[Rfam]
RNA sequence: AGUUGCAAGUCCAAGGCCAUAACAGAAGUGCUUACAGCAUGACCUGUCAGAUUCCAAUAAAUCUGCAAAUUCAGCU
Numbered sequence: 001a002g003u004u005g006c007a008a009g010u011c012c013a014a015g016g017c018c019a020u021a022a023c024a025g026a027a028g029u030g031c032u033u034a035c036a037g038c039a040u041g042a043c044c045u046g047u048c049a050g051a052u053u054c055c056a057a058u059a060a061a062u063c064u065g066c067a068a069a070u071u072c073a074g075c076u
Base pairs, nucleotide, nucleotide: 015044016043018041021076023074025072026071027070028040029039030038048065049064050063051062052061053060

A member of the RNA family "Mammalian CPEB3 ribozyme" from Crocodylus porosus, 76 nucleotides long.
NCBI's taxonomy places the organism under Eukaryota, Bilateria, Vertebrata, Euteleostomi, Crocodylus.
The mammalian CPEB3 ribozyme is a self cleaving RNA located in the second intron of the CPEB3 gene which belongs to a family of genes regulating messenger RNA polyadenylation.
It scores 41 bits against the family's covariance model.
Its family is annotated with RNA nuclease activity in the Gene Ontology.